[Rfam]
RNA sequence: AGGAACAGAACAAUGCCAAAUUUCUUGUUUUAUCAAGAGGUUUGGUAUUGCUCUGUUU
Numbered sequence: 001a002g003g004a005a006c007a008g009a010a011c012a013a014u015g016c017c018a019a020a021u022u023u024c025u026u027g028u029u030u031u032a033u034c035a036a037g038a039g040g041u042u043u044g045g046u047a048u049u050g051c052u053c054u055g056u057u058u
Base pairs, nucleotide, nucleotide: 004057005056006055007054008053009052011050012049013048014047015046019042020041022039023038024037025036026035027034
Dot-bracket structure: ...((((((.(((((...((.((((((......)))))).))...))))).)))))).
Plastid-psbA-4 3UTR RNA: a 58-nucleotide RNA.
Clan: Plastid-psbA 3UTR RNA clan.
The sequence is in the family's curated seed alignment.
Rfam's curators write: Plastid psbA-4 is a non-coding RNA (ncRNA) present in plastids. It was identified in inverted repeat sequences in the 3 prime untranslate region (3UTR) of photosystem II quinone-binding protein (psbA).
The family's consensus secondary structure was predicted with LocARNA.
Rfam classes the family as a cis-regulatory element.